[Rfam]
RNA sequence: AACGAUACUAUUUUCUUAGAUGGUAAAUGUCUCGCCUGUGCUAUAUUUUGUUUUUCGGUUAGUUAAAUAUCGUACGUUCAUAUUUGAACGUUCUGCCGGAAUGCAUUAUCAAUAGAGGUAAAGUCGCAACCCCAAAUCGUAAAGGAAACCGUAGCACGUCUUAAGCAAGAACGUGCUGCG
Numbered sequence: 001a002a003c004g005a006u007a008c009u010a011u012u013u014u015c016u017u018a019g020a021u022g023g024u025a026a027a028u029g030u031c032u033c034g035c036c037u038g039u040g041c042u043a044u045a046u047u048u049u050g051u052u053u054u055u056c057g058g059u060u061a062g063u064u065a066a067a068u069a070u071c072g073u074a075c076g077u078u079c080a081u082a083u084u085u086g087a088a089c090g091u092u093c094u095g096c097c098g099g100a101a102u103g104c105a106u107u108a109u110c111a112a113u114a115g116a117g118g119u120a121a122a123g124u125c126g127c128a129a130c131c132c133c134a135a136a137u138c139g140u141a142a143a144g145g146a147a148a149c150c151g152u153a154g155c156a157c158g159u160c161u162u163a164a165g166c167a168a169g170a171a172c173g174u175g176c177u178g179c180g
Stems, first nucleotide, its partner, number of pairs: 002140005007024007029125001031123002034119004039114002045109002049105003053101007074091007150180010160169003
This 180-nucleotide sequence from Shigella flexneri belongs to the Rfam family "Chromosome-encoded Shigella sRNA B". Rfam 15.1 lists 8 matches to the family in 6 species.